[Rfam]
RNA sequence: GUUAUGUGAAGGUAUUCUUGUGUUCUCUAGAUCAGUGCUUUAGAAAAUUGUGUGAUCUAAAGAACACAAAGAAUACCUACACAGAAC
Numbered sequence: 001g002u003u004a005u006g007u008g009a010a011g012g013u014a015u016u017c018u019u020g021u022g023u024u025c026u027c028u029a030g031a032u033c034a035g036u037g038c039u040u041u042a043g044a045a046a047a048u049u050g051u052g053u054g055a056u057c058u059a060a061a062g063a064a065c066a067c068a069a070a071g072a073a074u075a076c077c078u079a080c081a082c083a084g085a086a087c
Stems, first nucleotide, its partner, number of pairs: 001087003005083004010078010020067007028059007037051002
Rfam assigns this 87-nucleotide RNA from Pongo pygmaeus to the family "mir-581 microRNA precursor family". The base pairs follow the family's consensus structure, which was predicted with RNAalifold. For this family Rfam cites "Genome-wide comparative analysis of microRNAs in three non-human primates" (Brameier, BMC Res Notes, 2010). NCBI's taxonomy places the organism under Eukaryota, Eumetazoa, Chordata, Ponginae, Pongo. Gene Ontology terms of the family: RISC complex and miRNA-mediated post-transcriptional gene silencing.